[Rfam]
RNA sequence: AAAGCGCAGGCAAUAAUAGCUUGUCGGGUGCCACAACCUUCCGCCGUCUGUCGGCGUCCAAGUUGUGGAACCACAUCCGGCAAGACGCCUGCUUU
Numbered sequence: 001a002a003a004g005c006g007c008a009g010g011c012a013a014u015a016a017u018a019g020c021u022u023g024u025c026g027g028g029u030g031c032c033a034c035a036a037c038c039u040u041c042c043g044c045c046g047u048c049u050g051u052c053g054g055c056g057u058c059c060a061a062g063u064u065g066u067g068g069a070a071c072c073a074c075a076u077c078c079g080g081c082a083a084g085a086c087g088c089c090u091g092c093u094u095u
Base pairs, nucleotide, nucleotide: 001095002094003093004092005091006090010088011087024080025079026078027077028076029075030074031068032067033066034065035064036063037062042056043055044054045053046052
Shown here is a 95-nucleotide RNA, a member of the family "DUF3800-V RNA". The family's consensus secondary structure is taken from published work. It is annotated as a small RNA.